[Rfam]
RNA sequence: AGACGAGGAAGGCAGAGAGCCAGGGAAGAGGCAGUGCAUGGGAGGAGCCAAAACAGAGAACCUGUUAAUGGUUCCAUCCAUGCUCUGCCUGUUCCCCGUCUUUUGUCUCUUGCUUCUUG
Numbered sequence: 001a002g003a004c005g006a007g008g009a010a011g012g013c014a015g016a017g018a019g020c021c022a023g024g025g026a027a028g029a030g031g032c033a034g035u036g037c038a039u040g041g042g043a044g045g046a047g048c049c050a051a052a053a054c055a056g057a058g059a060a061c062c063u064g065u066u067a068a069u070g071g072u073u074c075c076a077u078c079c080a081u082g083c084u085c086u087g088c089c090u091g092u093u094c095c096c097c098g099u100c101u102u103u104u105g106u107c108u109c110u111u112g113c114u115u116c117u118u119g
Stems, first nucleotide, its partner, number of pairs: 017102003021098001023096005029090006036083006045074002